[Rfam]
Nucleotides: 068
Base pairs, nucleotide, nucleotide: 001068002067003066004065
Number, partner (000 for none) and nucleotide at each position: 001068c002067u003066u004065u005000g006000g007000u008000g009000a010000u011000g012000a013000g014000u015000u016000u017000u018000u019000a020000a021000c022000u023000u024000c025000g026000g027000u028000c029000c030000g031000u032000g033000u034000u035000u036000c037000u038000g039000a040000a041000a042000c043000c044000u045000g046000a047000u048000u049000a050000u051000a052000c053000u054000a055000g056000a057000a058000g059000u060000u061000c062000u063000g064000a065004a066003g067002g068001g